[Rfam]
RNA sequence: AGGUUAAUGCUAAUCGUGAUAGGGGUUGUUCAUCAGCUGACGCCUAACAUGUUAGCAUUAACUU
Numbered sequence: 001a002g003g004u005u006a007a008u009g010c011u012a013a014u015c016g017u018g019a020u021a022g023g024g025g026u027u028g029u030u031c032a033u034c035a036g037c038u039g040a041c042g043c044c045u046a047a048c049a050u051g052u053u054a055g056c057a058u059u060a061a062c063u064u
Stems, first nucleotide, its partner, number of pairs: 004061011020046004025041003
Annotation
This 64-nucleotide RNA from Sphaeramia orbicularis belongs to the Rfam family "mir-155 microRNA precursor family". Rfam 15.1 lists 647 matches to the family in 617 species. It scores 66 bits against the family's covariance model. Its family is annotated with miRNA-mediated post-transcriptional gene silencing and RISC complex in the Gene Ontology. Taxonomically the source falls in Sphaeramia (Eukaryota, Actinopteri, Acanthomorphata, Euacanthomorphacea).